[Rfam]
RNA sequence: GAGCCUCACGCGGGAGAGACCCCGGCCGAAAGAGCCAGGGCGCCGAAGGAGCAACCGCCCCGGAAUCUCUCAGGCAACCGGACCGCGCGAGGAAC
Numbered sequence: 001g002a003g004c005c006u007c008a009c010g011c012g013g014g015a016g017a018g019a020c021c022c023c024g025g026c027c028g029a030a031a032g033a034g035c036c037a038g039g040g041c042g043c044c045g046a047a048g049g050a051g052c053a054a055c056c057g058c059c060c061c062g063g064a065a066u067c068u069c070u071c072a073g074g075c076a077a078c079c080g081g082a083c084c085g086c087g088c089g090a091g092g093a094a095c
Stems, first nucleotide, its partner, number of pairs: 006090002009087005020040003042075003045071002049069003055063002
Background:
The family of this 95-nucleotide RNA from Alterirhizorhabdus solaris is "Glycine riboswitch aptamer". Its family is annotated with glycine biosynthetic process in the Gene Ontology. NCBI's taxonomy places the organism under Bacteria, Pseudomonadati, Pseudomonadota, Alphaproteobacteria, Alterirhizorhabdus. The match comes from Rfam's covariance-model search (60 bits).